RNA sequence: CCCCCGCUUUUCCUCCCUGAGCGGGAGCCUUGAUGUGUGACAGCAGACAGGCUUUUUCCACCCCGGCUUCGGCCGGGGUUUUUUCUU
Numbered sequence: 001c002c003c004c005c006g007c008u009u010u011u012c013c014u015c016c017c018u019g020a021g022c023g024g025g026a027g028c029c030u031u032g033a034u035g036u037g038u039g040a041c042a043g044c045a046g047a048c049a050g051g052c053u054u055u056u057u058c059c060a061c062c063c064c065g066g067c068u069u070c071g072g073c074c075g076g077g078g079u080u081u082u083u084u085c086u087u
Stems, first nucleotide, its partner, number of pairs: 003025006027052004034045003060079008
The record is an 87-nucleotide RNA sequence from Ottowia testudinis, which matches "Burkholderia RNA 7 (anti-hemB)" in Rfam. Rfam's curators write: This RNA motif was identified by computational search in b-proteobacteria Burkholderia. Its family is annotated with protein binding and bacterial biofilm matrix in the Gene Ontology. The source organism's lineage runs through Bacteria, Pseudomonadati, Betaproteobacteria, Burkholderiales and Ottowia.